[Rfam]
RNA sequence: UUCUUAUCAAGAGCAGGUGGAGGGACGAGCCCGACGAAGCCCGGCAACCGACUUACAUGUUUUGUAAGCACGGUGCUAAUUCUUGCAGCAAAGGCUGAUAGAUAAGGA
Numbered sequence: 001u002u003c004u005u006a007u008c009a010a011g012a013g014c015a016g017g018u019g020g021a022g023g024g025a026c027g028a029g030c031c032c033g034a035c036g037a038a039g040c041c042c043g044g045c046a047a048c049c050g051a052c053u054u055a056c057a058u059g060u061u062u063u064g065u066a067a068g069c070a071c072g073g074u075g076c077u078a079a080u081u082c083u084u085g086c087a088g089c090a091a092a093g094g095c096u097g098a099u100a101g102a103u104a105a106g107g108a
Stems, first nucleotide, its partner, number of pairs: 001108008013042001016041003022032003026085004043077004048073002050069001053066001081100001086097004
SAM riboswitch aptamer (S box leader): a 108-nucleotide sequence from Bacillus sp. Y1.
It scores 74 bits against the family's covariance model.
Gene Ontology term of the family: regulation of gene expression.
Taxonomically the source falls in Bacillus (Bacteria, Bacillota, Bacilli, Bacillaceae).